[Rfam]
RNA sequence: GCGGAGACGCAAGUUUCCGUUCACUCCUCACACCACACUCCGCCUGGACUACCGUUCAGGCGGUU
Numbered sequence: 001g002c003g004g005a006g007a008c009g010c011a012a013g014u015u016u017c018c019g020u021u022c023a024c025u026c027c028u029c030a031c032a033c034c035a036c037a038c039u040c041c042g043c044c045u046g047g048a049c050u051a052c053c054g055u056u057c058a059g060g061c062g063g064u065u
Stems, first nucleotide, its partner, number of pairs: 001020008041062007
Overview
Rfam assigns this 65-nucleotide RNA from Oculatella sp. LEGE 06141 to the family "Cyanobacterial functional RNA 1". On this family, see Axmann et al., Genome Biol 2005: "Identification of cyanobacterial non-coding RNAs by comparative genome analysis". It is annotated as a small RNA.